[Rfam]
RNA sequence: GAGCCGUGCCGCGACUGGCGAGCUGCGUGGAAGCGACCACGAGGAAGCGGCACCACCCCGGGCAUGCCCGGGGACGCACCACCGCCGGAGUGCCGUCCGCCUGGGCACCCGGG
Numbered sequence: 001g002a003g004c005c006g007u008g009c010c011g012c013g014a015c016u017g018g019c020g021a022g023c024u025g026c027g028u029g030g031a032a033g034c035g036a037c038c039a040c041g042a043g044g045a046a047g048c049g050g051c052a053c054c055a056c057c058c059c060g061g062g063c064a065u066g067c068c069c070g071g072g073g074a075c076g077c078a079c080c081a082c083c084g085c086c087g088g089a090g091u092g093c094c095g096u097c098c099g100c101c102u103g104g105g106c107a108c109c110c111g112g113g
Stems, first nucleotide, its partner, number of pairs: 003056001006053007015044002017101004027040004090108005

The record is a 113-nucleotide sequence from Peterkaempfera bronchialis, which matches "ZMP/ZTP riboswitch aptamer (pfl RNA motif)" in Rfam. Pairs were carried over by alignment from the consensus structure, which is taken from published work.